[Rfam]
This 585-nucleotide RNA sequence belongs to the Rfam family "ROOL RNA". From the family's description: Firmicutes, Fusobacteria (1 example), Tenericutes (1 example).
Nucleotides: 585
Base pairs, nucleotide, nucleotide: 007582009580011578015574021568022567025056026055027054028053029052037049038048040046060178061177062176063175064174065173079114080113081112082111083110084109086107087106090103091102092101093100094099117137118136120133121132122131123130124129142164143163144162145161146160187546189544191542204527207358208357209356210355212354214352215351216350217349218348219347220314221313222312223311224310236250237249238248239247256296257295258294259293260292261291266286267285268284269283270282271281274303275302276301277300316381317380318379319378320377327342328341329340330339362439368434369433370432371431372430421509422508423507424506443459461521462520463519472518476514479511482505484502485501487499488498489497490496554565555564556563557562
Number, partner (000 for none) and nucleotide at each position: 001000g002000u003000g004000a005000u006000a007582u008000a009580a010000u011578a012000u013000u014000u015574u016000u017000a018000u019000a020000u021568u022567c023000a024000a025056g026055u027054c028053g029052g030000u031000g032000a033000a034000g035000a036000u037049g038048g039000a040046u041000u042000a043000a044000u045000c046040a047000a048038c049037c050000u051000g052029c053028c054027g055026a056025u057000c058000a059000u060178u061177u062176u063175u064174c065173c066000g067000u068000g069000c070000u071000a072000a073000a074000u075000c076000g077000c078000u079114c080113g081112u082111u083110g084109u085000a086107a087106c088000c089000u090103u091102u092101u093100g094099g095000g096000a097000u098000a099094c100093u101092g102091g103090a104000u105000u106087g107086u108000u109084a110083u111082a112081g113080c114079g115000g116000u117137a118136c119000g120133c121132a122131u123130u124129a125000g126000u127000g128000a129124u130123a131122a132121u133120g134000u135000a136118g137117u138000u139000g140000a141000a142164u143163a144162a145161a146160g147000u148000a149000a150000g151000u152000a153000g154000u155000c156000a157000a158000c159000a160146c161145u162144u163143u164142a165000a166000a167000g168000a169000c170000g171000u172000u173065g174064g175063a176062g177061a178060a179000a180000u181000g182000a183000c184000g185000g186000a187546a188000g189544u190000u191542g192000c193000u194000u195000u196000g197000a198000u199000g200000u201000a202000a203000a204527g205000u206000a207358c208357g209356a210355u211000u212354a213000g214352g215351u216350a217349u218348a219347a220314g221313u222312g223311a224310u225000g226000a227000u228000a229000a230000u231000a232000g233000a234000u235000g236250g237249u238248a239247g240000u241000c242000a243000a244000a245000a246000g247239c248238u249237a250236c251000a252000u253000g254000a255000a256296u257295c258294c259293u260292a261291u262000a263000a264000a265000c266286c267285u268284a269283u270282u271281g272000c273000g274303u275302g276301a277300g278000a279000a280000a281271c282270a283269a284268u285267a286266g287000u288000u289000a290000g291261g292260u293259a294258g295257g296256a297000a298000a299000u300277c301276u302275c303274a304000a305000a306000a307000u308000a309000a310224g311223u312222c313221a314220c315000c316381a317380c318379c319378a320377a321000g322000u323000g324000a325000u326000a327342g328341c329340a330339u331000a332000g333000g334000a335000a336000a337000u338000g339330a340329u341328g342327c343000u344000a345000u346000u347219u348218u349217a350216u351215a352214c353000g354212u355210g356209u357208c358207g359000g360000u361000a362439c363000g364000a365000g366000u367000a368434g369433c370432c371431u372430a373000a374000a375000u376000c377320u378319u379318g380317g381316u382000u383000u384000a385000c386000a387000a388000g389000a390000a391000u392000a393000u394000u395000c396000u397000u398000a399000a400000u401000u402000a403000u404000u405000u406000a407000c408000u409000a410000g411000a412000a413000g414000a415000a416000a417000a418000u419000a420000a421509u422508c423507u424506g425000a426000a427000u428000g429000a430372u431371a432370g433369g434368u435000g436000a437000a438000a439362g440000u441000u442000a443459g444000u445000g446000c447000u448000g449000c450000u451000a452000g453000u454000g455000u456000a457000a458000c459443u460000c461521g462520g463519a464000u465000c466000u467000u468000g469000a470000a471000a472518u473000g474000u475000g476514a477000u478000a479511g480000a481000a482505g483000c484502u485501a486000u487499g488498a489497g490496g491000u492000c493000g494000c495000u496490c497489c498488u499487u500000u501485u502484a503000g504000u505482u506424c507423a508422g509421a510000c511479u512000a513000u514476u515000a516000u517000a518472a519463u520462c521461c522000g523000u524000g525000a526000c527204u528000g529000a530000a531000c532000a533000a534000c535000a536000u537000c538000a539000a540000u541000a542191c543000c544189a545000a546187u547000g548000g549000a550000a551000g552000u553000a554565g555564a556563a557562c558000g559000a560000a561000a562557g563556u564555u565554c566000g567022g568021a569000u570000a571000u572000a573000u574015a575000u576000u577000u578011u579000u580009u581000a582007a583000a584000g585000g